[Rfam]
RNA sequence: AGUAAUGAGGAGGCUGUAUUAUCUGAAGUAUCUAAUUUGUUACAUUAUUCAUGGUCUUAAAAGUUCUCUGAUUGUU
Numbered sequence: 001a002g003u004a005a006u007g008a009g010g011a012g013g014c015u016g017u018a019u020u021a022u023c024u025g026a027a028g029u030a031u032c033u034a035a036u037u038u039g040u041u042a043c044a045u046u047a048u049u050c051a052u053g054g055u056c057u058u059a060a061a062a063g064u065u066c067u068c069u070g071a072u073u074g075u076u
Stems, first nucleotide, its partner, number of pairs: 001076005
Annotation:
The family of this 76-nucleotide RNA from Panicum virgatum is "Small nucleolar RNA R160". It scores 63 bits against the family's covariance model. The pairing is the family consensus, mapped onto this sequence. From the family's description: snoR160 is a C/D box small nucleolar RNA, which acts as a methylation guide for 25S ribosomal RNA in plants. snoR160 has been alternatively named snoZ270 in rice. The source organism's lineage runs through Eukaryota, commelinids, Panicodae, Panicinae and Panicum sect. Hiantes.